Rfam assigns this 74-nucleotide RNA from Daucus carota to the family "Plastid-ycf2 5UTR RNA".
By type it is a cis-regulatory element.
Rfam describes the family as follows. Plastid ycf2 is a non-coding RNA (ncRNA) recognised in plastids. It was found in the prime untranslated region (5UTR) of ycf2 genes, it presents a tRNA-like motif which suggests it can be involved in mRNA maturation, particularly involved in defining the precise 5' end of the transcript.
A search with the family's covariance model found it, with a score of 67 bits.
Nucleotides: 074
Base pairs, nucleotide, nucleotide: 003074004073005072006071007070008069010026011025012024013023014022040068042066044065045064046062047061049059050058
Number, partner (000 for none) and nucleotide at each position: 001000g002000u003074g004073c005072a006071u007070c008069c009000a010026g011025u012024a013023g014022g015000a016000a017000u018000u019000g020000a021000a022014c023013c024012u025011a026010c027000u028000g029000g030000u031000c032000a033000g034000c035000c036000a037000a038000u039000c040068a041000a042066g043000a044065g045064u046062g047061g048000c049059u050058g051000c052000c053000u054000c055000a056000a057000c058050c059049a060000u061047u062046c063000a064045g065044c066042c067000a068040u069008g070007g071006a072005u073004g074003c